[Rfam]
RNA: Plastid-rpoB 5UTR RNA
Nucleotides: 049
Base pairs, nucleotide, nucleotide: 006048007047008046009045010044011043
Number, partner (000 for none) and nucleotide at each position: 001000c002000u003000a004000u005000a006048u007047u008046g009045u010044u011043c012000c013000u014000g015000g016000u017000u018000a019000u020000u021000u022000u023000g024000u025000c026000u027000u028000u029000a030000u031000c032000u033000c034000a035000u036000u037000c038000a039000u040000a041000g042000a043011g044010a045009a046008c047007a048006g049000a